[Rfam]
RNA sequence: UACAAAGGAAGUUCGACUAAGAUCGCCACGUCCUGUGGCAACGUCGAACGACCCUGCGUCGUGCAGG
Numbered sequence: 001u002a003c004a005a006a007g008g009a010a011g012u013u014c015g016a017c018u019a020a021g022a023u024c025g026c027c028a029c030g031u032c033c034u035g036u037g038g039c040a041a042c043g044u045c046g047a048a049c050g051a052c053c054c055u056g057c058g059u060c061g062u063g064c065a066g067g
Stems, first nucleotide, its partner, number of pairs: 011049007025039005053067005
RNA: Bacillaceae-1 RNA
Organism: Halobacillus halophilus